About this RNA:
Rfam assigns this 89-nucleotide RNA sequence from Actinobacteria bacterium OK074 to the family "sodF sRNA". A reference for the family is Kim et al. (2014), "Inverse regulation of Fe- and Ni-containing SOD genes by a Fur family regulator Nur through small RNA processed from 3'UTR of the sodF mRNA", Nucleic Acids Res. A search with the family's covariance model found it, with a score of 86 bits.
RNA sequence: GCGGCCUGCUCGUGAUCGUCUUCUCACCGUUCAUGGGACAGGCGGAUGAAGGAAGGCCCCCGCGAGGAUGUGACUCGCGGGGGCCUUCC
Numbered sequence: 001g002c003g004g005c006c007u008g009c010u011c012g013u014g015a016u017c018g019u020c021u022u023c024u025c026a027c028c029g030u031u032c033a034u035g036g037g038a039c040a041g042g043c044g045g046a047u048g049a050a051g052g053a054a055g056g057c058c059c060c061c062g063c064g065a066g067g068a069u070g071u072g073a074c075u076c077g078c079g080g081g082g083g084c085c086u087u088c089c
Stems, first nucleotide, its partner, number of pairs: 002044002005042004010037002012034004018028001051089016